[Rfam]
RNA sequence: GUCACAGGUACGGAGACAUGGUGCCGAAGACGAUUGCAGGAAAGAUCUUUGGUUCGAUCUGCUCUCUGAGUGGGGUGCUGGUAAUUGCCCUGCCUGUCCCUGUCAUCGUCUCCAAC
Numbered sequence: 001g002u003c004a005c006a007g008g009u010a011c012g013g014a015g016a017c018a019u020g021g022u023g024c025c026g027a028a029g030a031c032g033a034u035u036g037c038a039g040g041a042a043a044g045a046u047c048u049u050u051g052g053u054u055c056g057a058u059c060u061g062c063u064c065u066c067u068g069a070g071u072g073g074g075g076u077g078c079u080g081g082u083a084a085u086u087g088c089c090c091u092g093c094c095u096g097u098c099c100c101u102g103u104c105a106u107c108g109u110c111u112c113c114a115a116c
Base pairs, nucleotide, nucleotide: 001116002115007112010109011108012107013106015104016103017102018101020099021098023097024096039079040078042076051065052064
Dot-bracket structure: ((....(..((((.((((.((.((..............((.(........((...........))..........).))................)))).)))).))))..)..))